[Rfam]
RNA sequence: UGUUAAAAACUUUAUCUAUUUGUAUUGUUAAAAACUAGUGCGACUGACGAAAUAACUAGACAGUAAUACAUAACUUGCCACGCAUACCUCAUGCUGAUGUACAGUGAUCAAUUUUUAACAAUUGAAAUGGAUGAAUUUUUAACA
Numbered sequence: 001u002g003u004u005a006a007a008a009a010c011u012u013u014a015u016c017u018a019u020u021u022g023u024a025u026u027g028u029u030a031a032a033a034a035c036u037a038g039u040g041c042g043a044c045u046g047a048c049g050a051a052a053u054a055a056c057u058a059g060a061c062a063g064u065a066a067u068a069c070a071u072a073a074c075u076u077g078c079c080a081c082g083c084a085u086a087c088c089u090c091a092u093g094c095u096g097a098u099g100u101a102c103a104g105u106g107a108u109c110a111a112u113u114u115u116u117a118a119c120a121a122u123u124g125a126a127a128u129g130g131a132u133g134a135a136u137u138u139u140u141a142a143c144a
Base pairs, nucleotide, nucleotide: 002143003142004141005140006139007138008137009136011135012134013133014132015131016130018128019127020126021125024122025121026120028118029117030116031115032114033113
RNA: MIR7502 microRNA precursor family
Organism: Gossypium trilobum